This 83-nucleotide RNA sequence from Albula goreensis belongs to the Rfam family "mir-363 microRNA precursor family". The organism belongs to Albula, within Eukaryota. On this family, see Nielsen et al., Anim Genet 2010: "MicroRNA identity and abundance in porcine skeletal muscles determined by deep sequencing".

RNA sequence: GCUGUUUCCGGGUGGAUGACUUUGCAAUUUUAAUGAUUCAUAAAGCCUCCAAAAAAUUGCACUGUAUCCAUCUGUAAGCCGCC
Numbered sequence: 001g002c003u004g005u006u007u008c009c010g011g012g013u014g015g016a017u018g019a020c021u022u023u024g025c026a027a028u029u030u031u032a033a034u035g036a037u038u039c040a041u042a043a044a045g046c047c048u049c050c051a052a053a054a055a056a057u058u059g060c061a062c063u064g065u066a067u068c069c070a071u072c073u074g075u076a077a078g079c080c081g082c083c
Base pairs, nucleotide, nucleotide: 009074010073011072012071013070014069015068016067017066019065020064023061024060025059026058027057028056029055030054031053